[Rfam]
RNA sequence: UUCGUCUGGAGUUCAAAGAGGAUGAGAACCUCCGAAGGAGGUUUGAGCCGAAUGCAGCGAGACAACGUUGCUUCAGCAACGGCCCGCAGGGCGGCUCUCGCAGAGAGCGUUCAUCCUCUCUCGGCGACCC
Numbered sequence: 001u002u003c004g005u006c007u008g009g010a011g012u013u014c015a016a017a018g019a020g021g022a023u024g025a026g027a028a029c030c031u032c033c034g035a036a037g038g039a040g041g042u043u044u045g046a047g048c049c050g051a052a053u054g055c056a057g058c059g060a061g062a063c064a065a066c067g068u069u070g071c072u073u074c075a076g077c078a079a080c081g082g083c084c085c086g087c088a089g090g091g092c093g094g095c096u097c098u099c100g101c102a103g104a105g106a107g108c109g110u111u112c113a114u115c116c117u118c119u120c121u122c123g124g125c126g127a128c129c130c
Stems, first nucleotide, its partner, number of pairs: 015121001017119005023113001033093002042088001044086002049059002066081006
RNA: RtT RNA